[Rfam]
RNA: tRNA
RNA sequence: GGGUCGCUAACUCAAUGGUAGAGUACUCGGCUUUUAACCGACUAGUUCCGGGUUCGAAUCCCGGGCGACCCA
Numbered sequence: 001g002g003g004u005c006g007c008u009a010a011c012u013c014a015a016u017g018g019u020a021g022a023g024u025a026c027u028c029g030g031c032u033u034u035u036a037a038c039c040g041a042c043u044a045g046u047u048c049c050g051g052g053u054u055c056g057a058a059u060c061c062c063g064g065g066c067g068a069c070c071c072a
Base pairs, nucleotide, nucleotide: 001071002070003069004068005067006066007065010024011023012022013021027041028040029039030038048064049063050062051061052060